RNA sequence: GUGGGACUCAAACUGUGGGGGCACUUUCUGUGCUCCUGAGGGAAGUGCCGCCAUUGUUUGAGUUCCAC
Numbered sequence: 001g002u003g004g005g006a007c008u009c010a011a012a013c014u015g016u017g018g019g020g021g022c023a024c025u026u027u028c029u030g031u032g033c034u035c036c037u038g039a040g041g042g043a044a045g046u047g048c049c050g051c052c053a054u055u056g057u058u059u060g061a062g063u064u065c066c067a068c
Base pairs, nucleotide, nucleotide: 004065005064006063007062008061009060010059011058012057015054016053017052018051020049021048022047023046024045025044026043027042028041
This 68-nucleotide sequence from Molossus molossus belongs to the Rfam family "mir-290 microRNA precursor family". Rfam links the family to the GO terms RISC complex and miRNA-mediated post-transcriptional gene silencing. Clan: mir-290 clan. A reference for the family is Houbaviy et al. (2003), "Embryonic stem cell-specific MicroRNAs", Dev Cell. Taxonomically the source falls in Molossus (Eukaryota, Teleostomi, Tetrapoda, Theria). It scores 72 bits against the family's covariance model.